[Rfam]
Nucleotides: 106
Stems, first nucleotide, its partner, number of pairs: 006073005015029001017028004030052003035048003038044002075088004
Number, partner (000 for none) and nucleotide at each position: 001000u002000c003000g004000c005000u006073a007072c008071a009070u010069c011000a012000c013000g014000a015029g016000c017028g018027a019026c020025c021000a022000a023000c024000u025020g026019g027018u028017c029015c030052g031051g032050c033000a034000a035048c036047c037046g038044g039043g040000a041000a042000u043039c044038c045000a046037c047036g048035g049000u050032g051031c052030c053000a054000a055000g056000u057000c058000a059000c060000u061000u062000c063000g064000g065000u066000g067000a068000c069010g070009a071008u072007g073006u074000g075088g076087c077086c078085c079000c080000g081000c082000a083000a084000g085078g086077g087076g088075c089000a090000a091000c092000g093000g094000a095000c096000c097000c098000g099000u100000g101000a102000c103000u104000c105000g106000c
SAM-I/IV (S-adenosyl methionine) riboswitch aptamer: a 106-nucleotide RNA. Rfam 15.1 lists 567 matches to the family in 508 species. The base pairs follow the family's consensus structure, which is taken from published work. Rfam links the family to the GO terms regulation of gene expression and S-adenosylmethionine metabolic process.